This 89-nucleotide RNA sequence from Pseudonocardia sulfidoxydans belongs to the Rfam family "ZMP/ZTP riboswitch aptamer (pfl RNA motif)". The family's consensus secondary structure is taken from published work. The match comes from Rfam's covariance-model search (51 bits).
RNA sequence: GGUGUCGGCCGCGACCGGCGAGGGUGGAGCACCACCGGGGAGCGGCCGACCGCACGUCCAUCGGAGCGUCGACCGCCUGGGUGCCCCGG
Number, nucleotide and partner (000 for none) at each position: 001g000002g000003u000004g050005u049006c048007g047008g046009c045010c044011g043012c042013g000014a000015c039016c038017g077018g076019c075020g074021a000022g000023g000024g035025u034026g033027g032028a000029g000030c000031a000032c027033c026034a025035c024036c000037g000038g016039g015040g000041a000042g012043c011044g010045g009046c008047c007048g006049a005050c004051c000052g000053c000054a000055c000056g000057u000058c000059c000060a000061u000062c000063g000064g000065a000066g084067c083068g082069u081070c080071g000072a000073c000074c020075g019076c018077c017078u000079g000080g070081g069082u068083g067084c066085c000086c000087c000088g000089g000